[Rfam]
RNA sequence: UUUUUAGGGUAAGUAUAUCCCAUGAUAUAUUUGGGAUAUACUUACCCUUUAA
Numbered sequence: 001u002u003u004u005u006a007g008g009g010u011a012a013g014u015a016u017a018u019c020c021c022a023u024g025a026u027a028u029a030u031u032u033g034g035g036a037u038a039u040a041c042u043u044a045c046c047c048u049u050u051a052a
Stems, first nucleotide, its partner, number of pairs: 006048007014040003018036004022031001
RNA: mir-1302 microRNA precursor family
Organism: Diceros bicornis